[Rfam]
RNA sequence: AGGCCAGUCAGAUCUGGCAGUGUUUCUACAGCUGGAUGCCCUUCCUAACGGGCAUCCAGCUGUAGAAACACUGCCAGAUCUGACUGGCCU
Numbered sequence: 001a002g003g004c005c006a007g008u009c010a011g012a013u014c015u016g017g018c019a020g021u022g023u024u025u026c027u028a029c030a031g032c033u034g035g036a037u038g039c040c041c042u043u044c045c046u047a048a049c050g051g052g053c054a055u056c057c058a059g060c061u062g063u064a065g066a067a068a069c070a071c072u073g074c075c076a077g078a079u080c081u082g083a084c085u086g087g088c089c090u
Stems, first nucleotide, its partner, number of pairs: 001090013015076010027064010041052003
RNA: mir-449 microRNA precursor family